Shown here is a 173-nucleotide RNA from Novibacillus thermophilus, a member of the family "Glycine riboswitch aptamer".
From the family's description: This family represents the bacterial glycine riboswitch.
The organism belongs to Novibacillus, within Bacteria.

RNA sequence: AUGAAGGCAAGGGGAGAGACUGUCCUGGCUGACCUGUUUGGUCUAGGAAUGAACGUUCGUGACAGUGAUGAGUUUCAGGGGCGUUCCGCUUUUCAAACAGGUUGACGGACGGCGCCGAAGGAGCAAGCCACCCAAGUGGCGAAUCUCUCAGGCAAAAAGACGCUUGUCUGACA
Numbered sequence: 001a002u003g004a005a006g007g008c009a010a011g012g013g014g015a016g017a018g019a020c021u022g023u024c025c026u027g028g029c030u031g032a033c034c035u036g037u038u039u040g041g042u043c044u045a046g047g048a049a050u051g052a053a054c055g056u057u058c059g060u061g062a063c064a065g066u067g068a069u070g071a072g073u074u075u076c077a078g079g080g081g082c083g084u085u086c087c088g089c090u091u092u093u094c095a096a097a098c099a100g101g102u103u104g105a106c107g108g109a110c111g112g113c114g115c116c117g118a119a120g121g122a123g124c125a126a127g128c129c130a131c132c133c134a135a136g137u138g139g140c141g142a143a144u145c146u147c148u149c150a151g152g153c154a155a156a157a158a159g160a161c162g163c164u165u166g167u168c169u170g171a172c173a
Base pairs, nucleotide, nucleotide: 006168007167008166009165010164011163013161020112021111022110023109024108025107114153115152116151117149118148121147122146123145127140128139
Gene Ontology term of the family: glycine biosynthetic process.